Rfam assigns this 542-nucleotide RNA from Suillus subaureus to the family "Nuclear RNase P". Taxonomically the source falls in Suillus (Eukaryota, Opisthokonta, Basidiomycota, Agaricomycetidae). A search with the family's covariance model found it, with a score of 87 bits.
[Rfam]
RNA sequence: CCAGCUCGAAAGCCACGAAUGCUCAUCACACACAGGGUUGCUUCAUGCAUCCAAAUUCCUGAGCGGGCUAAGGUCUGAGUAUUCCAAUCCUCCUCGAUCGGCUCUAGCAGAGCCCAGCUGUAAUCAGCUGCGCGACGUACCAGAAAAGCAGCUUCACUUUUCAAACCCCCAAGAUCCUGUAUACCGCAGAGGAGGGCGAGAAUGAAAGCUUUGAAAGGCGUUGCGAGGAUCGGGCGAACUCGUAUCCAUCGUUGAUCUCCAGUCAGUCAGUCGUCGCUAUCGCGCCUUUGCCUGCCAACAAGGCGCUAACAGAUGAUAUCGGACGCUUAGCGUCUGAUGACUUGCCUGGGGUCACAAGUUCUUUCGGCGAACGCCAACGUUUGCCAAUCUUCACUACCUGUACCGGAGACUCUAACUCCUUGCGUAUGAGGCGCGACUGAUUGUAUUAUUUUACGAUGGGAUUGGUUCGUCCUUGAGUUCACUUCGUGGCUCGCGUAUCCUUUGUGGAUCGUGAAACUCGAUUCAGACUACUCUCGGACUGG
Numbered sequence: 001c002c003a004g005c006u007c008g009a010a011a012g013c014c015a016c017g018a019a020u021g022c023u024c025a026u027c028a029c030a031c032a033c034a035g036g037g038u039u040g041c042u043u044c045a046u047g048c049a050u051c052c053a054a055a056u057u058c059c060u061g062a063g064c065g066g067g068c069u070a071a072g073g074u075c076u077g078a079g080u081a082u083u084c085c086a087a088u089c090c091u092c093c094u095c096g097a098u099c100g101g102c103u104c105u106a107g108c109a110g111a112g113c114c115c116a117g118c119u120g121u122a123a124u125c126a127g128c129u130g131c132g133c134g135a136c137g138u139a140c141c142a143g144a145a146a147a148g149c150a151g152c153u154u155c156a157c158u159u160u161u162c163a164a165a166c167c168c169c170c171a172a173g174a175u176c177c178u179g180u181a182u183a184c185c186g187c188a189g190a191g192g193a194g195g196g197c198g199a200g201a202a203u204g205a206a207a208g209c210u211u212u213g214a215a216a217g218g219c220g221u222u223g224c225g226a227g228g229a230u231c232g233g234g235c236g237a238a239c240u241c242g243u244a245u246c247c248a249u250c251g252u253u254g255a256u257c258u259c260c261a262g263u264c265a266g267u268c269a270g271u272c273g274u275c276g277c278u279a280u281c282g283c284g285c286c287u288u289u290g291c292c293u294g295c296c297a298a299c300a301a302g303g304c305g306c307u308a309a310c311a312g313a314u315g316a317u318a319u320c321g322g323a324c325g326c327u328u329a330g331c332g333u334c335u336g337a338u339g340a341c342u343u344g345c346c347u348g349g350g351g352u353c354a355c356a357a358g359u360u361c362u363u364u365c366g367g368c369g370a371a372c373g374c375c376a377a378c379g380u381u382u383g384c385c386a387a388u389c390u391u392c393a394c395u396a397c398c399u400g401u402a403c404c405g406g407a408g409a410c411u412c413u414a415a416c417u418c419c420u421u422g423c424g425u426a427u428g429a430g431g432c433g434c435g436a437c438u439g440a441u442u443g444u445a446u447u448a449u450u451u452u453a454c455g456a457u458g459g460g461a462u463u464g465g466u467u468c469g470u471c472c473u474u475g476a477g478u479u480c481a482c483u484u485c486g487u488g489g490c491u492c493g494c495g496u497a498u499c500c501u502u503u504g505u506g507g508a509u510c511g512u513g514a515a516a517c518u519c520g521a522u523u524c525a526g527a528c529u530a531c532u533c534u535c536g537g538a539c540u541g542g
Stems, first nucleotide, its partner, number of pairs: 001542004007536003012490007020065005036052002039049003075526005088229003100114005115130006132224007151209003491514005

About this RNA:
The family is grouped with related families in Rfam's "RNaseP clan".